[Rfam]
The family of this 31-nucleotide RNA sequence from Phocaeicola paurosaccharolyticus is "S4-Bacteroidia ribosomal protein leader". Rfam classes the family as a cis-regulatory leader. A reference for the family is Eckert and Weinberg (2020), "Discovery of 20 novel ribosomal leader candidates in bacteria and archaea", BMC Microbiol. Pairs were carried over by alignment from the consensus structure, which is taken from published work. Its Rfam clan is "Ribosomal Protein S4 Leader clan".

RNA sequence: GAUUGCACUUUCCUUUCUGUAAUCGCGGCUG
Numbered sequence: 001g002a003u004u005g006c007a008c009u010u011u012c013c014u015u016u017c018u019g020u021a022a023u024c025g026c027g028g029c030u031g
Stems, first nucleotide, its partner, number of pairs: 001024007